[Rfam]
Nucleotides: 076
Stems, first nucleotide, its partner, number of pairs: 001075007009067002012064001014062006021056003029053003033049004037044002
Number, partner (000 for none) and nucleotide at each position: 001075g002074a003073g004072a005071u006070a007069c008000c009067c010066u011000a012064a013000u014062g015061g016060g017059g018058c019057a020000a021056g022055g023054c024000u025000u026000g027000c028000u029053u030052c031051a032000u033049u034048g035047g036046g037044g038043c039000u040000u041000u042000g043038g044037c045000g046036c047035u048034c049033a050000c051031u052030g053029a054023g055022u056021c057019u058018g059017c060016c061015c062014c063000c064012u065000g066010a067009g068000u069007g070006u071005g072004u073003c074002u075001c076000u